A member of the RNA family "Bacterial large subunit ribosomal RNA" from Chloroherpeton thalassium, 589 nucleotides of a longer RNA.
RNA sequence: CUCGCAUUUGGACGGAAAGACCCUAUGCACCUUUACUGCACCCUGGCAUUGGGCUUGGGCAAAACUUGUGUAGAAUAGGUGGGAGACUUUGAAGCGGGGGCGCUAGCAACCGUGGAGUCGCAAUGUGAAAUACCACCCUGGUUCUGUUUGAGUUCUAACUUCGAGUAGUGAAUCCUACUCAAGGACCGUGUCAGGCGGGUAGUUUGACUGGGGCGGUCGCCUCCUAAAAUGUAACGGAGGCUCGCAAUGGUUCCCUCAGUUCCGUUGGUAAUGGAACGAAGAGCGUAAUGGUAUAAGGGAGCUUAACUGUAAGACUGACAGGUCGAGCAGAAACGAAAGUUGGCCAUAGUGAUCCGGUGGUUCUGAAUGGAAGGGCCAUCGCUCAUAGGAUAAAAGGUACGCUAGGGAUAACAGGCUGAUCCCCGCCGAGAGUUCAUAUCGACGUGGGGGUUUGGCACCUCGAUGUCGGCUCAUCACAUCCUGGGGCUGGAGAAGGUCCCAAGGGUCCGGCUGUUCGCCGGUUAAAGUGGUACGUGAGCUGGGUUCAGAACGUCGUGAGACAGUUCGGUCCCUAUCCGAUGCGAGCGCA
Numbered sequence: 001c002u003c004g005c006a007u008u009u010g011g012a013c014g015g016a017a018a019g020a021c022c023c024u025a026u027g028c029a030c031c032u033u034u035a036c037u038g039c040a041c042c043c044u045g046g047c048a049u050u051g052g053g054c055u056u057g058g059g060c061a062a063a064a065c066u067u068g069u070g071u072a073g074a075a076u077a078g079g080u081g082g083g084a085g086a087c088u089u090u091g092a093a094g095c096g097g098g099g100g101c102g103c104u105a106g107c108a109a110c111c112g113u114g115g116a117g118u119c120g121c122a123a124u125g126u127g128a129a130a131u132a133c134c135a136c137c138c139u140g141g142u143u144c145u146g147u148u149u150g151a152g153u154u155c156u157a158a159c160u161u162c163g164a165g166u167a168g169u170g171a172a173u174c175c176u177a178c179u180c181a182a183g184g185a186c187c188g189u190g191u192c193a194g195g196c197g198g199g200u201a202g203u204u205u206g207a208c209u210g211g212g213g214c215g216g217u218c219g220c221c222u223c224c225u226a227a228a229a230u231g232u233a234a235c236g237g238a239g240g241c242u243c244g245c246a247a248u249g250g251u252u253c254c255c256u257c258a259g260u261u262c263c264g265u266u267g268g269u270a271a272u273g274g275a276a277c278g279a280a281g282a283g284c285g286u287a288a289u290g291g292u293a294u295a296a297g298g299g300a301g302c303u304u305a306a307c308u309g310u311a312a313g314a315c316u317g318a319c320a321g322g323u324c325g326a327g328c329a330g331a332a333a334c335g336a337a338a339g340u341u342g343g344c345c346a347u348a349g350u351g352a353u354c355c356g357g358u359g360g361u362u363c364u365g366a367a368u369g370g371a372a373g374g375g376c377c378a379u380c381g382c383u384c385a386u387a388g389g390a391u392a393a394a395a396g397g398u399a400c401g402c403u404a405g406g407g408a409u410a411a412c413a414g415g416c417u418g419a420u421c422c423c424c425g426c427c428g429a430g431a432g433u434u435c436a437u438a439u440c441g442a443c444g445u446g447g448g449g450g451u452u453u454g455g456c457a458c459c460u461c462g463a464u465g466u467c468g469g470c471u472c473a474u475c476a477c478a479u480c481c482u483g484g485g486g487c488u489g490g491a492g493a494a495g496g497u498c499c500c501a502a503g504g505g506u507c508c509g510g511c512u513g514u515u516c517g518c519c520g521g522u523u524a525a526a527g528u529g530g531u532a533c534g535u536g537a538g539c540u541g542g543g544u545u546c547a548g549a550a551c552g553u554c555g556u557g558a559g560a561c562a563g564u565u566c567g568g569u570c571c572c573u574a575u576c577c578g579a580u581g582c583g584a585g586c587g588c589a
Stems, first nucleotide, its partner, number of pairs: 001585008010577003014572002022406004027402002029398005035203004042195007051155011063143004068138001078137005085119003094113004100107002159183003163180006206218004219241006242387001244344002250302006256282002259277006283292002307330004313324003332341003355381007363374002415456003419453001420450007430440002467542001468540004472534001473531005480505002483500006507521005548566004552561003